[Rfam]
RNA sequence: UUGGGAGAGGUUCAUAGCAAAUACCCUCUAUAAAAAACUAUGGAAAC
Numbered sequence: 001u002u003g004g005g006a007g008a009g010g011u012u013c014a015u016a017g018c019a020a021a022u023a024c025c026c027u028c029u030a031u032a033a034a035a036a037a038c039u040a041u042g043g044a045a046a047c
Base pairs, nucleotide, nucleotide: 006029007028008027009026010025015040016039
A member of the RNA family "PreQ1 (pre queuosine) riboswitch aptamer" from Caryophanon tenue, 47 nucleotides long.
The source organism's lineage runs through Bacteria, Bacillati, Bacilli, Caryophanaceae and Caryophanon.
This family is a bacterial riboswitch that binds to the metabolite preQ1, an intermediate in the biosynthesis of the modified nucleoside queuosine from GTP. One example of this riboswitch is located in the leader of the Bacillus subtilis ykvJKLM (queCDEF) operon which encodes four genes necessary for queuosine production. PreQ1 binding to the riboswitch aptamer is thought to induce premature transcription termination within the leader to down-regulate expression of these genes.
Pairs were carried over by alignment from the consensus structure.
The match comes from Rfam's covariance-model search (44 bits).